The record is a 49-nucleotide RNA from Chloranthus serratus, which matches "Plastid-rpoB 5UTR RNA" in Rfam. Rfam's curators write: Plastid rpoB is a non-coding RNA (ncRNA) recognised in plastids. Rfam 15.1 lists 102 matches to the family in 69 species. Rfam's curators put it in the seed alignment. On this family, see Richter et al., Plant Commun 2023: "Retrograde signaling in plants: A critical review focusing on the GUN pathway and beyond". The source organism's lineage runs through Eukaryota, Viridiplantae, Streptophytina, Euphyllophyta and Chloranthus.
[Rfam]
RNA sequence: CUAUACUGUUUCUGAUUAUUCUGUCUUUAUCUCAUUUAUAGAGAACAGA
Numbered sequence: 001c002u003a004u005a006c007u008g009u010u011u012c013u014g015a016u017u018a019u020u021c022u023g024u025c026u027u028u029a030u031c032u033c034a035u036u037u038a039u040a041g042a043g044a045a046c047a048g049a
Stems, first nucleotide, its partner, number of pairs: 006048006